[Rfam]
RNA: abiF RNA
Organism: Segatella copri
RNA sequence: CCCGCCAAGCCUCUCGAUGAAGCUUAAAUCGGCGGGU
Dot-bracket structure: ((((((.(((...........)))......)))))).